[Rfam]
RNA sequence: GGUCUGUGAUGAAUAGUAAAACGUCUCACUAUCCAAAGCCUUGUACUUCCAUGACCGUUUCUCCCAGCAGUUUCUCACCAGUUAUGGCACAGUAAAUGGUGUGGCUGGCAGAGUGUUUGCUGACAGCUAGUGAUGUGUUCAGUUCAUGUUAGCCUGAAGUGUAUCAGAGAAAUGACUGGGAUCAGCAUCCGACAGUCUUACUUGAAGGAGUUUGGGGUCUUGGAUUGUUAUAAUUGGACAUGUGAUCUGCCUUUUCUGCUGAGACC
Numbered sequence: 001g002g003u004c005u006g007u008g009a010u011g012a013a014u015a016g017u018a019a020a021a022c023g024u025c026u027c028a029c030u031a032u033c034c035a036a037a038g039c040c041u042u043g044u045a046c047u048u049c050c051a052u053g054a055c056c057g058u059u060u061c062u063c064c065c066a067g068c069a070g071u072u073u074c075u076c077a078c079c080a081g082u083u084a085u086g087g088c089a090c091a092g093u094a095a096a097u098g099g100u101g102u103g104g105c106u107g108g109c110a111g112a113g114u115g116u117u118u119g120c121u122g123a124c125a126g127c128u129a130g131u132g133a134u135g136u137g138u139u140c141a142g143u144u145c146a147u148g149u150u151a152g153c154c155u156g157a158a159g160u161g162u163a164u165c166a167g168a169g170a171a172a173u174g175a176c177u178g179g180g181a182u183c184a185g186c187a188u189c190c191g192a193c194a195g196u197c198u199u200a201c202u203u204g205a206a207g208g209a210g211u212u213u214g215g216g217g218u219c220u221u222g223g224a225u226u227g228u229u230a231u232a233a234u235u236g237g238a239c240a241u242g243u244g245a246u247c248u249g250c251c252u253u254u255u256c257u258g259c260u261g262a263g264a265c266c
Stems, first nucleotide, its partner, number of pairs: 001266004034249002037246001039244001048224004053219002061210004065122006078108009130190001132189005147174004154167003

About this RNA:
The record is a 266-nucleotide RNA from Alca torda, which matches "Small Cajal body specific RNA 6" in Rfam. U88 is small Cajal body specific RNA (scaRNA). scaRNAs are a novel class of small nuclear RNAs which localise to the Cajal bodies. U88 is found associated with both fibrillarin and Gar1p and co-localises with coilin in Cajal bodies. Taxonomically the source falls in Alca (Eukaryota, Opisthokonta, Vertebrata, Dipnotetrapodomorpha). Rfam classes the family as a small Cajal body RNA. The literature on the family includes a 2002 paper in EMBO J by Darzacq et al., "Cajal body-specific small nuclear RNAs: a novel class of 2'-O-methylation and pseudouridylation guide RNAs". Pairs were carried over by alignment from the consensus structure, which is taken from published work.